[Rfam]
RNA: Archaeal large subunit ribosomal RNA, nucleotides 540 to 636
Organism: Halobaculum gomorrense
RNA sequence: GACGGGGCUUACAAGGCCCCACUCAGAAUGACCGAGACGCGAGUCUCCAGUAAGACGAGUGGGGAGCCGAAGUUCCGUCGUGCGUUUUGAAAAACGA
Numbered sequence: 001g002a003c004g005g006g007g008c009u010u011a012c013a014a015g016g017c018c019c020c021a022c023u024c025a026g027a028a029u030g031a032c033c034g035a036g037a038c039g040c041g042a043g044u045c046u047c048c049a050g051u052a053a054g055a056c057g058a059g060u061g062g063g064g065a066g067c068c069g070a071a072g073u074u075c076c077g078u079c080g081u082g083c084g085u086u087u088u089g090a091a092a093a094a095c096g097a
Base pairs, nucleotide, nucleotide: 001079002078003077004076005075006074007073008072009071010070015068016067019062020061021060022059023058024057029053034047035046036045037044038043083096084095085094